[Rfam]
RNA sequence: AAACUUCAUAGCUAAAAGCCAGAGACAGCAGGAGCCAUAGAGCUUAAUACCCUGCCGAGGUUUAUUGGAAAAUGCGAUCGCAACUUGAGUAUAUCUAAGUUGCUUGGCAUCAAGAAUAAAUUGUCACUCGGCUGGGUUAGCCGAGUUUUUGUUUUUCUACU
Numbered sequence: 001a002a003a004c005u006u007c008a009u010a011g012c013u014a015a016a017a018g019c020c021a022g023a024g025a026c027a028g029c030a031g032g033a034g035c036c037a038u039a040g041a042g043c044u045u046a047a048u049a050c051c052c053u054g055c056c057g058a059g060g061u062u063u064a065u066u067g068g069a070a071a072a073u074g075c076g077a078u079c080g081c082a083a084c085u086u087g088a089g090u091a092u093a094u095c096u097a098a099g100u101u102g103c104u105u106g107g108c109a110u111c112a113a114g115a116a117u118a119a120a121u122u123g124u125c126a127c128u129c130g131g132c133u134g135g136g137u138u139a140g141c142c143g144a145g146u147u148u149u150u151g152u153u154u155u156u157c158u159a160c161u
Stems, first nucleotide, its partner, number of pairs: 028055005034043002126146009